[Rfam]
RNA: mir-2807 microRNA precursor family
Organism: Bombyx mori
RNA sequence: UUAACUCAAUUGUGUAUGGAGUUGGAACAGCGCCCCUACCGGCAAACGUAGGCAAACGUUCCAACUCCAUAUAAAUUUGAGAUA
Numbered sequence: 001u002u003a004a005c006u007c008a009a010u011u012g013u014g015u016a017u018g019g020a021g022u023u024g025g026a027a028c029a030g031c032g033c034c035c036c037u038a039c040c041g042g043c044a045a046a047c048g049u050a051g052g053c054a055a056a057c058g059u060u061c062c063a064a065c066u067c068c069a070u071a072u073a074a075a076u077u078u079g080a081g082a083u084a
Stems, first nucleotide, its partner, number of pairs: 008078002011075001013073004018068001020066009034052002